Annotation:
Shown here is a 113-nucleotide sequence from Vitis vinifera, a member of the family "Small nucleolar RNA snoR100". The family's RNA type in Rfam is H/ACA-box small nucleolar RNA. The literature on the family includes a 2002 paper in Curr Biol by Marker et al., "Experimental RNomics: identification of 140 candidates for small non-messenger RNAs in the plant Arabidopsis thaliana".
[Rfam]
RNA sequence: GAAUGAAGGAAGCAUGGUAAUGUGCACAGAGAUUGAAUUCUAAGGUCAUCAUGUCUGCUCUCUCUGAUGCCUUUCGGGGCUUUGAUUUGGGGGCCUGGAUCAGACCUACAUUU
Numbered sequence: 001g002a003a004u005g006a007a008g009g010a011a012g013c014a015u016g017g018u019a020a021u022g023u024g025c026a027c028a029g030a031g032a033u034u035g036a037a038u039u040c041u042a043a044g045g046u047c048a049u050c051a052u053g054u055c056u057g058c059u060c061u062c063u064c065u066g067a068u069g070c071c072u073u074u075c076g077g078g079g080c081u082u083u084g085a086u087u088u089g090g091g092g093g094c095c096u097g098g099a100u101c102a103g104a105c106c107u108a109c110a111u112u113u
Base pairs, nucleotide, nucleotide: 012025013024014023015022043096044095045094046093047092053086054085055084057080058079059078